[Rfam]
mir-302 microRNA precursor family: a 67-nucleotide sequence from Rousettus aegyptiacus. The family has 49 seed sequences and 2,090 matches in Rfam 15.1.

RNA sequence: CCAUCACUUAAACGUGGAUGUACUGGCUCUGAACUACAGAAGUAAGUGCUUCCAUGUUUAGUGAUGG
Numbered sequence: 001c002c003a004u005c006a007c008u009u010a011a012a013c014g015u016g017g018a019u020g021u022a023c024u025g026g027c028u029c030u031g032a033a034c035u036a037c038a039g040a041a042g043u044a045a046g047u048g049c050u051u052c053c054a055u056g057u058u059u060a061g062u063g064a065u066g067g
Base pairs, nucleotide, nucleotide: 001067002066003065005063006062007061008060010059011058012057013056014055015054016053017052018051020049021048022047023046024045026043027042028041
Its Rfam clan is "mir-290 clan". Taxonomically the source falls in Rousettus (Eukaryota, Opisthokonta, Eumetazoa, Laurasiatheria).